RNA sequence: CUGCCGUGCCACGGGAACCCGAACGUUUUUUGGGUUGAGAGGGGAGCCGGAUGCUCCCGACCGUCGAACCUGAACCGGUUAAUGCCGGCGUAGGAAGGCUCUUCACUCGUGCA
Numbered sequence: 001c002u003g004c005c006g007u008g009c010c011a012c013g014g015g016a017a018c019c020c021g022a023a024c025g026u027u028u029u030u031u032g033g034g035u036u037g038a039g040a041g042g043g044g045a046g047c048c049g050g051a052u053g054c055u056c057c058c059g060a061c062c063g064u065c066g067a068a069c070c071u072g073a074a075c076c077g078g079u080u081a082a083u084g085c086c087g088g089c090g091u092a093g094g095a096a097g098g099c100u101c102u103u104c105a106c107u108c109g110u111g112c113a
Base pairs, nucleotide, nucleotide: 006101008099009098010097011064012063013062014061017035018034019033020032021031022030023029042058043057044056045055046054069094070093071092072091075088076087077086078085
RNA: TPP riboswitch aptamer (THI element)